[Rfam]
RNA sequence: UAGGGAAGUCGGGGUCAGGACCCCCCCCCCUGAGCCCAGGAUAACCCAUGAUGUUGGGGGGCA
Numbered sequence: 001u002a003g004g005g006a007a008g009u010c011g012g013g014g015u016c017a018g019g020a021c022c023c024c025c026c027c028c029c030c031u032g033a034g035c036c037c038a039g040g041a042u043a044a045c046c047c048a049u050g051a052u053g054u055u056g057g058g059g060g061g062c063a
Stems, first nucleotide, its partner, number of pairs: 008042003012037004016032004022061004027057002
Rfam assigns this 63-nucleotide RNA from Microtus ochrogaster to the family "Gag/pol translational readthrough site". The family's RNA type in Rfam is cis-regulatory element. NCBI's taxonomy places the organism under Eukaryota, Eumetazoa, Deuterostomia, Teleostomi, Microtus. On this family, see Wills et al., EMBO J 1994: "Pseudoknot-dependent read-through of retroviral gag termination codons: importance of sequences in the spacer and loop 2". The family's consensus secondary structure is taken from published work.